[Rfam]
mir-3473 microRNA precursor family: an 82-nucleotide RNA sequence from Nannospalax galili. Rfam 15.1 lists 1,094 matches to the family in 20 species. Pairs were carried over by alignment from the consensus structure, which was predicted with RNAalifold.

RNA sequence: ACCACUGAGCCAUCUCUCCAGCCCCAUAAAAUAUUUUUUAAAAAUAUUUCUAUUUGAGGGGCUGGAGAGAUGGCUCAGGGGU
Numbered sequence: 001a002c003c004a005c006u007g008a009g010c011c012a013u014c015u016c017u018c019c020a021g022c023c024c025c026a027u028a029a030a031a032u033a034u035u036u037u038u039u040a041a042a043a044a045u046a047u048u049u050c051u052a053u054u055u056g057a058g059g060g061g062c063u064g065g066a067g068a069g070a071u072g073g074c075u076c077a078g079g080g081g082u
Stems, first nucleotide, its partner, number of pairs: 002081002005078020